A member of the RNA family "Small nucleolar RNA SNORA58" from Chrysolophus pictus, 134 nucleotides long. Rfam classes the family as an H/ACA-box small nucleolar RNA. About the family: ACA52 is a member of the H/ACA class of snoRNA that guide the sites of modification of uridines to pseudouridines.

RNA sequence: UUGCACACCAGUAGACCUUGUCUGGUUGUUCCUGUAGCCAGAUGAGGGGGAUGGUGCGUGCAAGAAAAACCUGGGGUUGUGCAGGCUGAGGUCAGCCUCAGUGUGACUGAUUGAGCUGCCAUACUCUGACAUGU
Numbered sequence: 001u002u003g004c005a006c007a008c009c010a011g012u013a014g015a016c017c018u019u020g021u022c023u024g025g026u027u028g029u030u031c032c033u034g035u036a037g038c039c040a041g042a043u044g045a046g047g048g049g050g051a052u053g054g055u056g057c058g059u060g061c062a063a064g065a066a067a068a069a070c071c072u073g074g075g076g077u078u079g080u081g082c083a084g085g086c087u088g089a090g091g092u093c094a095g096c097c098u099c100a101g102u103g104u105g106a107c108u109g110a111u112u113g114a115g116c117u118g119c120c121a122u123a124c125u126c127u128g129a130c131a132u133g134u
Base pairs, nucleotide, nucleotide: 003061004060005059006058008056016047017046018045019044020043021042022041023040024039073127074126075125076124078123081119082118092110093109094108095107
For this family Rfam cites "RNomics: an experimental approach that identifies 201 candidates for novel, small, non-messenger RNAs in mouse" (Huttenhofer et al., EMBO J, 2001).